Description: A member of the RNA family "Xanthomonadaceae sRNA sX13" from Lysobacter sp. Root494, 111 nucleotides long. A search with the family's covariance model found it, with a score of 77 bits. The source organism's lineage runs through Bacteria, Pseudomonadota, Lysobacterales, Lysobacteraceae and Lysobacter.
RNA sequence: AAUGCCUGUCGCUGAUCUCUCCCUCCCCUGGAGUGAUCCCAGGAGCGAAGACCCCUCCCCAGGUCCCGCUCCUCCAGCCCCGCCGGCCCCCCCUGCCAGCGGGGCUUUUUA
Numbered sequence: 001a002a003u004g005c006c007u008g009u010c011g012c013u014g015a016u017c018u019c020u021c022c023c024u025c026c027c028c029u030g031g032a033g034u035g036a037u038c039c040c041a042g043g044a045g046c047g048a049a050g051a052c053c054c055c056u057c058c059c060c061a062g063g064u065c066c067c068g069c070u071c072c073u074c075c076a077g078c079c080c081c082g083c084c085g086g087c088c089c090c091c092c093c094u095g096c097c098a099g100c101g102g103g104g105c106u107u108u109u110u111a
Stems, first nucleotide, its partner, number of pairs: 004012001006011001014038004019033004041073007050065004076106008085097003